[Rfam]
RNA sequence: CGACCCGCUUCCUUCCCUUUCUUGUUGGAAGCAACGGCCAUACGGACAGCCGGGUCAACCGCCGA
Numbered sequence: 001c002g003a004c005c006c007g008c009u010u011c012c013u014u015c016c017c018u019u020u021c022u023u024g025u026u027g028g029a030a031g032c033a034a035c036g037g038c039c040a041u042a043c044g045g046a047c048a049g050c051c052g053g054g055u056c057a058a059c060c061g062c063c064g065a
Base pairs, nucleotide, nucleotide: 002056003055004054005053007032008031009030010029011028012027
Annotation
The record is a 65-nucleotide RNA, which matches "Streptococcus sRNA SpF59 (ldcC RNA)" in Rfam. It is one of the family's seed sequences. The family's RNA type in Rfam is small RNA.